Nucleotides: 087
Base pairs, nucleotide, nucleotide: 004084005083006082012074013073015071016070017069020067021066022065023064024063025062026061027060028059029058030057031056032055033054037050038049039048040047
Number, partner (000 for none) and nucleotide at each position: 001000a002000g003000a004084g005083g006082c007000c008000c009000u010000c011000u012074g013073c014000a015071g016070c017069c018000a019000g020067g021066g022065u023064g024063g025062a026061a027060u028059g029058c030057u031056u032055g033054c034000c035000u036000u037050g038049u039048u040047g041000c042000c043000g044000c045000c046000a047040c048039g049038a050037c051000g052000a053000a054033g055032c056031a057030a058029g059028c060027a061026u062025u063024c064023u065022g066021c067020c068000a069017g070016g071015c072000c073013g074012c075000u076000c077000a078000c079000g080000c081000u082006g083005c084004c085000c086000a087000c
The family of this 87-nucleotide RNA from Cnephaeus nilssonii is "mir-9195 microRNA precursor family". A search with the family's covariance model found it, with a score of 91 bits. The base pairs follow the family's consensus structure, which was predicted with RNAalifold. The organism belongs to Cnephaeus, within Eukaryota.